[Rfam]
RNA: 6S / SsrS RNA
Organism: Psychromonas ingrahamii
RNA sequence: UCAACCCUCGGAUAUCCGCUCUUCUUGACUACGUCUCUGAGCCGAUAAUUAUAAUCCCGGUGACUUGGCUUGAAUGCUACUGUGCAAGCUCGGCUCGUAUCGAGAAGCCUACGGCAAACACUAAGACACCUACCUUGACCUUCGGGUUCAGGUCUACAGUCAAUAACGAUAUCCUUGGGUUACU
Numbered sequence: 001u002c003a004a005c006c007c008u009c010g011g012a013u014a015u016c017c018g019c020u021c022u023u024c025u026u027g028a029c030u031a032c033g034u035c036u037c038u039g040a041g042c043c044g045a046u047a048a049u050u051a052u053a054a055u056c057c058c059g060g061u062g063a064c065u066u067g068g069c070u071u072g073a074a075u076g077c078u079a080c081u082g083u084g085c086a087a088g089c090u091c092g093g094c095u096c097g098u099a100u101c102g103a104g105a106a107g108c109c110u111a112c113g114g115c116a117a118a119c120a121c122u123a124a125g126a127c128a129c130c131u132a133c134c135u136u137g138a139c140c141u142u143c144g145g146g147u148u149c150a151g152g153u154c155u156a157c158a159g160u161c162a163a164u165a166a167c168g169a170u171a172u173c174c175u176u177g178g179g180u181u182a183c184u
Base pairs, nucleotide, nucleotide: 003181004180005179006178007177010174011173012172013171014170015169017168018167033154035152036151038150039149040148041147042146043145059130060129061128064125065124066123067122068121070120072119075116076115077114078113084108085107089104090103091102092101093100